[Rfam]
Nucleotides: 139
Stems, first nucleotide, its partner, number of pairs: 002040004007036002009033007017025001061133003066128003073121005079115003084107002
Number, partner (000 for none) and nucleotide at each position: 001000a002040g003039g004038c005037a006000g007036c008035c009033c010032u011031c012030u013029u014028g015027c016000g017025a018000a019000u020000g021000a022000a023000c024000a025017u026000g027015g028014c029013a030012g031011g032010g033009g034000a035008g036007g037005u038004g039003u040002u041000a042000u043000u044000c045000u046000g047000c048000u049000c050000g051000c052000a053000u054000a055000u056000c057000u058000a059000u060000u061133c062132u063131u064000u065000u066128g067127c068126u069000c070000u071000u072000c073121a074120g075119a076118u077117u078000u079115g080114c081113u082000g083000a084107g085106u086000u087000g088000g089000g090000u091000u092000a093000u094000c095000g096000u097000a098000u099000a100000a101000g102000c103000c104000c105000u106085a107084c108000g109000c110000u111000g112000a113081a114080g115079c116000u117077g118076g119075u120074c121073u122000a123000g124000u125000a126068a127067g128066c129000c130000u131063a132062a133061g134000u135000a136000c137000a138000u139000u
Rfam assigns this 139-nucleotide sequence from Nelumbo nucifera to the family "Small nucleolar RNA snoR77". The match comes from Rfam's covariance-model search (105 bits).